The record is a 226-nucleotide RNA sequence from Streptomyces fuscichromogenes, which matches "Streptomyces sRNA 4677" in Rfam.
The match comes from Rfam's covariance-model search (64 bits).
Rfam classes the family as a small RNA.
Located in the intergenic region between anti-sigma factor SCO4677 gene and a putative regulatory protein gene SCO4676. scr4677 expression requires the SCO4677 activity and scr4677 sRNA itself seem to affect the levels of the SCO4676-associated transcripts.
[Rfam]
RNA sequence: AGGGCCCGGCAGGCCACUGACCUCCCCAAAGAACCGGGGGAAAGAACUACCCGCCCGCCCGCCCUCCCCGGCCGCACGGCCCGCGUCACCCGUCCGAGUGACCAGCUUGCAGGCGCGGGAUACGGACCGUUACGUUCGCCGCAACAACCGCACACAGACGACGGCCCCCGGCCGGGACUGGCAUCCCGAACGAGGGCCUGACCGAUCAGGAAGCAGAACCUUCCCG
Numbered sequence: 001a002g003g004g005c006c007c008g009g010c011a012g013g014c015c016a017c018u019g020a021c022c023u024c025c026c027c028a029a030a031g032a033a034c035c036g037g038g039g040g041a042a043a044g045a046a047c048u049a050c051c052c053g054c055c056c057g058c059c060c061g062c063c064c065u066c067c068c069c070g071g072c073c074g075c076a077c078g079g080c081c082c083g084c085g086u087c088a089c090c091c092g093u094c095c096g097a098g099u100g101a102c103c104a105g106c107u108u109g110c111a112g113g114c115g116c117g118g119g120a121u122a123c124g125g126a127c128c129g130u131u132a133c134g135u136u137c138g139c140c141g142c143a144a145c146a147a148c149c150g151c152a153c154a155c156a157g158a159c160g161a162c163g164g165c166c167c168c169c170g171g172c173c174g175g176g177a178c179u180g181g182c183a184u185c186c187c188g189a190a191c192g193a194g195g196g197c198c199u200g201a202c203c204g205a206u207c208a209g210g211a212a213g214c215a216g217a218a219c220c221u222u223c224c225c226g
Base pairs, nucleotide, nucleotide: 012073013072014071015070086101087100088099089098091096115139116138117137118136163198164197165196166195167194169192170191174187175186176185177184209224210223211222212221213220

The source organism's lineage runs through Bacteria, Bacillati, Actinomycetota, Actinomycetes and Streptomyces. The family has 12 seed sequences and 563 matches in Rfam 15.1. A reference for the family is Hindra et al. (2014), "Complex intra-operonic dynamics mediated by a small RNA in Streptomyces coelicolor", PLoS One.